Shown here is a 191-nucleotide RNA, a member of the family "RAGATH-7 RNA".

[Rfam]
RNA sequence: AGUUAUUAUAAUUUAUUAUGCACAAAUAGAUUAUAAUAGUAAAACCACGUGGUAAGGACACAGUUAGGUUCGCUGUGAGUGCAUCCUUUAGUAGCAACUAACCAAAGCAAGUAUAGAUGGGAAUAAGCUAUUACCUCGAUAGGCUUAAUGAGGUACUUGACAGUCUGACACUAACUGAACAAUAAGUGUCA
Numbered sequence: 001a002g003u004u005a006u007u008a009u010a011a012u013u014u015a016u017u018a019u020g021c022a023c024a025a026a027u028a029g030a031u032u033a034u035a036a037u038a039g040u041a042a043a044a045c046c047a048c049g050u051g052g053u054a055a056g057g058a059c060a061c062a063g064u065u066a067g068g069u070u071c072g073c074u075g076u077g078a079g080u081g082c083a084u085c086c087u088u089u090a091g092u093a094g095c096a097a098c099u100a101a102c103c104a105a106a107g108c109a110a111g112u113a114u115a116g117a118u119g120g121g122a123a124u125a126a127g128c129u130a131u132u133a134c135c136u137c138g139a140u141a142g143g144c145u146u147a148a149u150g151a152g153g154u155a156c157u158u159g160a161c162a163g164u165c166u167g168a169c170a171c172u173a174a175c176u177g178a179a180c181a182a183u184a185a186g187u188g189u190c191a
Stems, first nucleotide, its partner, number of pairs: 002040015055088003059077006102120003108159005133154005166191007
Rfam's curators put it in the seed alignment. The family's RNA type in Rfam is small RNA. The base pairs follow the family's consensus structure, which is taken from published work.